[Rfam]
RNA: Alphaproteobacterial ar14
RNA sequence: AUCCUUCGGCCCUGCAUUAUCCUCCUCCCGAUGCGGGAUCGAAUGACCAGCGACACUCCUCCUCCCAGUCGUUGGUCUGUCAAAAUGACGCUCACCGGAUCCUCCCCCGGUGAGCGUUAUUC
Numbered sequence: 001a002u003c004c005u006u007c008g009g010c011c012c013u014g015c016a017u018u019a020u021c022c023u024c025c026u027c028c029c030g031a032u033g034c035g036g037g038a039u040c041g042a043a044u045g046a047c048c049a050g051c052g053a054c055a056c057u058c059c060u061c062c063u064c065c066c067a068g069u070c071g072u073u074g075g076u077c078u079g080u081c082a083a084a085a086u087g088a089c090g091c092u093c094a095c096c097g098g099a100u101c102c103u104c105c106c107c108c109g110g111u112g113a114g115c116g117u118u119a120u121u122c
Stems, first nucleotide, its partner, number of pairs: 007041003011037007045077010088117011